A member of the RNA family "mir-26 microRNA precursor family" from Scyliorhinus torazame, 81 nucleotides long. Gene Ontology terms of the family: miRNA-mediated post-transcriptional gene silencing and RISC complex. The source organism's lineage runs through Eukaryota, Selachii, Galeomorphii, Carcharhiniformes and Scyliorhinus.
RNA sequence: CUAUCACCUGCUUCAAGUAAUCCAGGAUAGGCUGUGUCCGUUUAAGGUGGCCUAUUCUCGAUGACUUGUCUCAGGUGAUGG
Numbered sequence: 001c002u003a004u005c006a007c008c009u010g011c012u013u014c015a016a017g018u019a020a021u022c023c024a025g026g027a028u029a030g031g032c033u034g035u036g037u038c039c040g041u042u043u044a045a046g047g048u049g050g051c052c053u054a055u056u057c058u059c060g061a062u063g064a065c066u067u068g069u070c071u072c073a074g075g076u077g078a079u080g081g
Base pairs, nucleotide, nucleotide: 002080003079004078005077007075008074009073010072014068015067016066017065018064020062021061022060024058025057026056027055028054029053030052031051032050033049
Dot-bracket structure: .((((.((((...(((((.(((.((((((((((...............)))))))))).))).)))))...)))).)))).